This 99-nucleotide RNA from Trichlorobacter lovleyi belongs to the Rfam family "Bacterial small signal recognition particle RNA". The base pairs follow the family's consensus structure, which is taken from published work.
[Rfam]
RNA sequence: AGCCGGGCCCUGCGCAACGGCAGGCCGUGAACCCCGCCAGGUCCGGAAGGAAGCAACGGCAGCGGCUGUCGCUGUGUGCCGCAGGUAAACCCGGCUGUC
Numbered sequence: 001a002g003c004c005g006g007g008c009c010c011u012g013c014g015c016a017a018c019g020g021c022a023g024g025c026c027g028u029g030a031a032c033c034c035c036g037c038c039a040g041g042u043c044c045g046g047a048a049g050g051a052a053g054c055a056a057c058g059g060c061a062g063c064g065g066c067u068g069u070c071g072c073u074g075u076g077u078g079c080c081g082c083a084g085g086u087a088a089a090c091c092c093g094g095c096u097g098u099c
Base pairs, nucleotide, nucleotide: 004093005092006091007090009085010084011083012082013081014080015076017075018074019073020072021071023067024066025065026064027063028062034059035058036057042051043050044049